[Rfam]
RNA sequence: AAAAUAGCCUGUUAGGUGAGGUUACUAUACAGAGGAAUGCUACUGCCCGGAAAUAUCGAAAGAUGCCAACGUGGUUAACAAAAAUGUCCGACCUAAGGAGUUUUUAACGUAGCUGGGUUAAAUCCCUAGGCUGUAUUGAGCCAAAACUCAACGAAGAGGUGUGCUU
Numbered sequence: 001a002a003a004a005u006a007g008c009c010u011g012u013u014a015g016g017u018g019a020g021g022u023u024a025c026u027a028u029a030c031a032g033a034g035g036a037a038u039g040c041u042a043c044u045g046c047c048c049g050g051a052a053a054u055a056u057c058g059a060a061a062g063a064u065g066c067c068a069a070c071g072u073g074g075u076u077a078a079c080a081a082a083a084a085u086g087u088c089c090g091a092c093c094u095a096a097g098g099a100g101u102u103u104u105u106a107a108c109g110u111a112g113c114u115g116g117g118u119u120a121a122a123u124c125c126c127u128a129g130g131c132u133g134u135a136u137u138g139a140g141c142c143a144a145a146a147c148u149c150a151a152c153g154a155a156g157a158g159g160u161g162u163g164c165u166u
Base pairs, nucleotide, nucleotide: 007160008159009158010157011152012151013096015148016147017146020142021141022140025138027136028135029134030133031132032131039113040112041111042110043109046073048071049070054065055064056063057062081105082104083103084102087099088098089097115126116125117124